[Rfam]
RNA sequence: GAUCAAUGAUGAAAAUAGCCAAAUCUGAGCAUCAGAAGACUUUGCGGUCUCCCUGAUUCAUGAUCUCUAUAGUUCUGGGA
Numbered sequence: 001g002a003u004c005a006a007u008g009a010u011g012a013a014a015a016u017a018g019c020c021a022a023a024u025c026u027g028a029g030c031a032u033c034a035g036a037a038g039a040c041u042u043u044g045c046g047g048u049c050u051c052c053c054u055g056a057u058u059c060a061u062g063a064u065c066u067c068u069a070u071a072g073u074u075c076u077g078g079g080a
Stems, first nucleotide, its partner, number of pairs: 029059001031057003037050004